[Rfam]
RNA: Flavo-1 RNA
Organism: Flavobacterium restrictum
RNA sequence: UUCUAUUCCAAUUGCGUGAGGGAUAGAAGUGGAGCUCUUUUUUUUGGCAUUUGGGCUGGGUUUUUCUCCCAGCCCAAAUGCCAAAAAAAAAGCGGGAACGGAUAGCCCGACUCCAU
Numbered sequence: 001u002u003c004u005a006u007u008c009c010a011a012u013u014g015c016g017u018g019a020g021g022g023a024u025a026g027a028a029g030u031g032g033a034g035c036u037c038u039u040u041u042u043u044u045u046g047g048c049a050u051u052u053g054g055g056c057u058g059g060g061u062u063u064u065u066c067u068c069c070c071a072g073c074c075c076a077a078a079u080g081c082c083a084a085a086a087a088a089a090a091a092g093c094g095g096g097a098a099c100g101g102a103u104a105g106c107c108c109g110a111c112u113c114c115a116u
Stems, first nucleotide, its partner, number of pairs: 020108003024104002029099002034093003040088021